[Rfam]
RNA sequence: UGCAAGUUUCAGGGAAGGUGCAAUUCCUUACUGGCGGUGACGGGGCGACCGGGGUUCAUAACGGCGCGCUCCGAAGCCCGCGACCCGCGCAUGCGGCUGAUCCGGUGUGAUUCCGGGGCCAACGGUCAAAGUCCGGAUGGAAGAAACGGAGU
Numbered sequence: 001u002g003c004a005a006g007u008u009u010c011a012g013g014g015a016a017g018g019u020g021c022a023a024u025u026c027c028u029u030a031c032u033g034g035c036g037g038u039g040a041c042g043g044g045g046c047g048a049c050c051g052g053g054g055u056u057c058a059u060a061a062c063g064g065c066g067c068g069c070u071c072c073g074a075a076g077c078c079c080g081c082g083a084c085c086c087g088c089g090c091a092u093g094c095g096g097c098u099g100a101u102c103c104g105g106u107g108u109g110a111u112u113c114c115g116g117g118g119c120c121a122a123c124g125g126u127c128a129a130a131g132u133c134c135g136g137a138u139g140g141a142a143g144a145a146a147c148g149g150a151g152u
Stems, first nucleotide, its partner, number of pairs: 006147005016028003030132002032121002034081004085096002101117005123135003